RNA sequence: AAGUUUCGCGUCGGCCAUCCUCCUCCCAAAGGCCGAAGCGGAUCGUCCGCGGCAUCCUCCUCCCAGCCGCUGGGCAACAACACGACGCCCGCCGGUCCUCCCCCGGCGGGCGUUGUCG
Number, nucleotide and partner (000 for none) at each position: 001a000002a000003g000004u000005u000006u000007c040008g039009c038010g000011u036012c035013g034014g033015c032016c031017a000018u000019c000020c000021u000022c000023c000024u000025c000026c000027c000028a000029a000030a000031g016032g015033c014034c013035g012036a011037a000038g009039c008040g007041g000042a000043u000044c000045g075046u074047c073048c072049g070050c069051g068052g067053c066054a000055u000056c000057c000058u000059c000060c000061u000062c000063c000064c000065a000066g053067c052068c051069g050070c049071u000072g048073g047074g046075c045076a000077a000078c000079a000080a000081c000082a000083c000084g000085a113086c112087g111088c110089c109090c108091g107092c106093c105094g104095g103096u000097c000098c000099u000100c000101c000102c000103c095104c094105g093106g092107c091108g090109g089110g088111c087112g086113u085114u000115g000116u000117c000118g000
Overview
The family of this 118-nucleotide RNA sequence from Aureimonas sp. Leaf454 is "Alphaproteobacterial ar14". The match comes from Rfam's covariance-model search (78 bits). Rfam classes the family as a small RNA. From the family's description: Smr14C2 was renamed NfeR1 (Nodule Formation Efficiency RNA) highly expressed in salt stress and during the symbiotic interaction on legume roots.